[Rfam]
RNA sequence: UUUUUAGCAUAAGUACAUCCCAUGCAAUGUUUGGGACAUACUUAUGCUUAAA
Numbered sequence: 001u002u003u004u005u006a007g008c009a010u011a012a013g014u015a016c017a018u019c020c021c022a023u024g025c026a027a028u029g030u031u032u033g034g035g036a037c038a039u040a041c042u043u044a045u046g047c048u049u050a051a052a
Stems, first nucleotide, its partner, number of pairs: 006048007014040002018036004022031001
mir-1302 microRNA precursor family: a 52-nucleotide RNA from Nomascus leucogenys. The base pairs follow the family's consensus structure, which was predicted with WAR. Its family is annotated with miRNA-mediated post-transcriptional gene silencing and RISC complex in the Gene Ontology. Lineage of the source: Eukaryota > Opisthokonta > Dipnotetrapodomorpha > Hylobatidae > Nomascus.